[Rfam]
Rfam assigns this 112-nucleotide sequence from Paenibacillus albilobatus to the family "Glycine riboswitch aptamer". The literature on the family includes a 2004 paper in Science by Mandal et al., "A glycine-dependent riboswitch that uses cooperative binding to control gene expression".

RNA sequence: UGAUGGCGAACGGGAGAGACCGACCCGGCAUGGGGGCGGCACCGAAGGAGCAAGCUGCGGGAGGGCACAAACCGGCGGCUAAUCUCUCAGGUACAAGGAACCGUCGCCGGAC
Numbered sequence: 001u002g003a004u005g006g007c008g009a010a011c012g013g014g015a016g017a018g019a020c021c022g023a024c025c026c027g028g029c030a031u032g033g034g035g036g037c038g039g040c041a042c043c044g045a046a047g048g049a050g051c052a053a054g055c056u057g058c059g060g061g062a063g064g065g066c067a068c069a070a071a072c073c074g075g076c077g078g079c080u081a082a083u084c085u086c087u088c089a090g091g092u093a094c095a096a097g098g099a100a101c102c103g104u105c106g107c108c109g110g111a112c
Base pairs, nucleotide, nucleotide: 005108006107007106008105009104011103012102013101020039021038022037041092042091043090044088045087048086049085050084054079055078056077057076058075